[Rfam]
RNA sequence: CCGUCCCGCCUCGUGGACGCCCCUGACCAUCCGAGAGCGGUCCCGGCUACCCUGACGGCGUGCGCCCGCUGUGGAAAGUCCCACGAGGGCGCAAAGCCGACAGCCGUCGCACUCCAGGGAGCCCUUACAUG
Number, nucleotide and partner (000 for none) at each position: 001c000002c000003g000004u000005c000006c000007c000008g000009c000010c000011u000012c000013g000014u000015g000016g000017a000018c000019g000020c000021c000022c000023c000024u000025g000026a000027c000028c000029a000030u000031c000032c000033g000034a000035g000036a000037g000038c000039g000040g000041u000042c000043c000044c000045g000046g000047c000048u000049a000050c000051c000052c000053u000054g000055a000056c000057g000058g000059c000060g000061u093062g092063c091064g090065c000066c088067c087068g000069c085070u000071g000072u000073g000074g000075a000076a000077a000078g000079u000080c000081c000082c000083a000084c000085g069086a000087g067088g066089g000090c064091g063092c062093a061094a000095a000096g110097c109098c000099g108100a107101c106102a000103g000104c000105c000106g101107u100108c099109g097110c096111a000112c000113u000114c000115c000116a000117g000118g000119g000120a000121g000122c000123c000124c000125u000126u000127a000128c000129a000130u000131g000
A member of the RNA family "Streptomyces-metH RNA" from Streptomyces sp. cf386, 131 nucleotides long. The base pairs follow the family's consensus structure, which is taken from published work. The family's RNA type in Rfam is small RNA. It scores 102 bits against the family's covariance model. NCBI's taxonomy places the organism under Bacteria, Bacillati, Actinomycetota, Streptomycetaceae, Streptomyces.